[Rfam]
RNA sequence: GUAAGGGGGCGACGGUUCUCUUACAGGGAGUGACUGAAUAAACUUACUGGCAUUUUGCUAGUUAAGGUGAUGAGUCAGAGGUGGUGCUCGCUGUUGGCAACGACAGAAUCGUCUUACCAGACGGGACUCAGGCAGGCAAGUCUUUCUAACUGUAGAAAUGCCCUUGUCUUGUUGGUAUACAGGAAUCCAACCUCCCACCCC
Numbered sequence: 001g002u003a004a005g006g007g008g009g010c011g012a013c014g015g016u017u018c019u020c021u022u023a024c025a026g027g028g029a030g031u032g033a034c035u036g037a038a039u040a041a042a043c044u045u046a047c048u049g050g051c052a053u054u055u056u057g058c059u060a061g062u063u064a065a066g067g068u069g070a071u072g073a074g075u076c077a078g079a080g081g082u083g084g085u086g087c088u089c090g091c092u093g094u095u096g097g098c099a100a101c102g103a104c105a106g107a108a109u110c111g112u113c114u115u116a117c118c119a120g121a122c123g124g125g126a127c128u129c130a131g132g133c134a135g136g137c138a139a140g141u142c143u144u145u146c147u148a149a150c151u152g153u154a155g156a157a158a159u160g161c162c163c164u165u166g167u168c169u170u171g172u173u174g175g176u177a178u179a180c181a182g183g184a185a186u187c188c189a190a191c192c193u194c195c196c197a198c199c200c201c
Stems, first nucleotide, its partner, number of pairs: 001024010026196005033068002046062006071130006078089003082119004091106006109124005134169007143158004150182004171191005
This 201-nucleotide RNA belongs to the Rfam family "manA RNA". It is one of the family's seed sequences. manA RNA has been located in 5'UTR regions of genes of mannose or fructose metabolism.